[Rfam]
The record is a 91-nucleotide RNA from Streptomyces taklimakanensis, which matches "che1 RNA" in Rfam. It scores 76 bits against the family's covariance model. Lineage of the source: Bacteria > Bacillati > Actinomycetota > Actinomycetes > Streptomyces.
RNA sequence: CGGGCAGGGGGGUCUCCGCCGCCGGGCGGGGCCUGUCCGACGGGCCGCGCGAGAGCGCGGCCGCGUGGUUGUCGCUCGGGGGUGGUCGCCG
Numbered sequence: 001c002g003g004g005c006a007g008g009g010g011g012g013u014c015u016c017c018g019c020c021g022c023c024g025g026g027c028g029g030g031g032c033c034u035g036u037c038c039g040a041c042g043g044g045c046c047g048c049g050c051g052a053g054a055g056c057g058c059g060g061c062c063g064c065g066u067g068g069u070u071g072u073c074g075c076u077c078g079g080g081g082g083u084g085g086u087c088g089c090c091g
Stems, first nucleotide, its partner, number of pairs: 001039008014031007043062008